[Rfam]
This 95-nucleotide RNA sequence from Canis lupus belongs to the Rfam family "Small nucleolar RNA SNORD116". For this family Rfam cites "Identification of brain-specific and imprinted small nucleolar RNA genes exhibiting an unusual genomic organization" (Cavaille et al., Proc Natl Acad Sci U S A, 2000). The match comes from Rfam's covariance-model search (81 bits).
RNA sequence: AGAUCGAUGACGACUCCCUCAAUCUGCAUUUCUUGGAAAAGUUGAACAAAAUGAGUGAGAACUCCCUACCGUCGUUCUGAUCAAAACUGAAGUCC
Number, nucleotide and partner (000 for none) at each position: 001a000002g094003a093004u092005c000006g000007a000008u000009g000010a000011c000012g000013a000014c000015u000016c000017c000018c000019u000020c000021a000022a000023u000024c000025u000026g000027c057028a056029u055030u054031u053032c000033u049034u048035g047036g000037a000038a000039a000040a000041g000042u000043u000044g000045a000046a000047c035048a034049a033050a000051a000052u000053g031054a030055g029056u028057g027058a000059g000060a000061a000062c000063u000064c000065c000066c000067u000068a000069c000070c000071g000072u000073c000074g000075u000076u000077c000078u000079g000080a000081u000082c000083a000084a000085a000086a000087c000088u000089g000090a000091a000092g004093u003094c002095c000